Shown here is a 52-nucleotide sequence from Solanum commersonii, a member of the family "MIR1886 microRNA precursor family". Rfam links the family to the GO terms miRNA-mediated post-transcriptional gene silencing and RISC complex. NCBI's taxonomy places the organism under Eukaryota, Euphyllophyta, Mesangiospermae, Solanaceae, Solanum. The family's consensus secondary structure was predicted with RNAalifold.
RNA sequence: UGAUAUGGAAUUAGCGUUUGGACAUGCGAUUUCACGCUGAUUCCAUCUUAUG
Dot-bracket structure: (((.((((((((((((((((......)))....))))))))))))).)))..